The record is a 108-nucleotide RNA sequence from Sphingobium algorifonticola, which matches "TPP riboswitch aptamer (THI element)" in Rfam. The match comes from Rfam's covariance-model search (64 bits). The base pairs follow the family's consensus structure, which is taken from published work.
RNA sequence: CGCCAUUCCCCGGGGAGCCGCAAAGGCUGAGAGGUGCGGUGCAAAUCCGCGCGACCCGCUGAACCUGAUCCAGUUGACACUGGCGUAGGGAGGGCAUGGCGUUUCCAG
Numbered sequence: 001c002g003c004c005a006u007u008c009c010c011c012g013g014g015g016a017g018c019c020g021c022a023a024a025g026g027c028u029g030a031g032a033g034g035u036g037c038g039g040u041g042c043a044a045a046u047c048c049g050c051g052c053g054a055c056c057c058g059c060u061g062a063a064c065c066u067g068a069u070c071c072a073g074u075u076g077a078c079a080c081u082g083g084c085g086u087a088g089g090g091a092g093g094g095c096a097u098g099g100c101g102u103u104u105c106c107a108g
Stems, first nucleotide, its partner, number of pairs: 006096001008094003011058004017027003034052005064089004070083004